[Rfam]
RNA sequence: UGCCAUCGCUAAGUCAAGUCUACUUCCGGUGACUCUUUUGUCACCGUUCUCCUCAAUGGAAGUAUUGUCUGUUACAGCUUUGGCAGAUUGACGCUGGUUCGCGCCGAAUUUCAUUCUGAAGCUAGGCUGAUUGGUUUUCGUCUUGAAAGCCGAUCGUUAAGAACUAAGCAGUGUUCUGUUUUUGAGUUGAGAACUGCUCGCCUUUUCUUGGCCCCUCAGUAGCCUUUCUCUUAGUAACAUUUCACACAUCG
Numbered sequence: 001u002g003c004c005a006u007c008g009c010u011a012a013g014u015c016a017a018g019u020c021u022a023c024u025u026c027c028g029g030u031g032a033c034u035c036u037u038u039u040g041u042c043a044c045c046g047u048u049c050u051c052c053u054c055a056a057u058g059g060a061a062g063u064a065u066u067g068u069c070u071g072u073u074a075c076a077g078c079u080u081u082g083g084c085a086g087a088u089u090g091a092c093g094c095u096g097g098u099u100c101g102c103g104c105c106g107a108a109u110u111u112c113a114u115u116c117u118g119a120a121g122c123u124a125g126g127c128u129g130a131u132u133g134g135u136u137u138u139c140g141u142c143u144u145g146a147a148a149g150c151c152g153a154u155c156g157u158u159a160a161g162a163a164c165u166a167a168g169c170a171g172u173g174u175u176c177u178g179u180u181u182u183u184g185a186g187u188u189g190a191g192a193a194c195u196g197c198u199c200g201c202c203u204u205u206u207c208u209u210g211g212c213c214c215c216u217c218a219g220u221a222g223c224c225u226u227u228c229u230c231u232u233a234g235u236a237a238c239a240u241u242u243c244a245c246a247c248a249u250c251g
Stems, first nucleotide, its partner, number of pairs: 003083003017070002020067001022063006029044005094171003098167002103127003107123001109121004129155012173245002178240002181237001189230004194222004200212003
Source information
This 251-nucleotide RNA sequence from Aspergillus calidoustus belongs to the Rfam family "Small nucleolar RNA snR191". Rfam links the family to the GO terms nucleolus and RNA processing. A reference for the family is Badis et al. (2003), "A snoRNA that guides the two most conserved pseudouridine modifications within rRNA confers a growth advantage in yeast", RNA. By type it is an H/ACA-box small nucleolar RNA. It scores 51 bits against the family's covariance model. NCBI's taxonomy places the organism under Eukaryota, Ascomycota, Eurotiomycetes, Aspergillaceae, Aspergillus subgen. Nidulantes. Pairs were carried over by alignment from the consensus structure, which was predicted with WAR.